[Rfam]
RNA: msiK RNA
RNA sequence: CCCUGCCGCGCUUCACAACGGAUCGUCCGGCACGUACCUGCCGGUGAAGGAGAAAACU
Dot-bracket structure: ........(.(((((...........((((((......))))))))))))........
Numbered sequence: 001c002c003c004u005g006c007c008g009c010g011c012u013u014c015a016c017a018a019c020g021g022a023u024c025g026u027c028c029g030g031c032a033c034g035u036a037c038c039u040g041c042c043g044g045u046g047a048a049g050g051a052g053a054a055a056a057c058u
Stems, first nucleotide, its partner, number of pairs: 009050001011049005027044006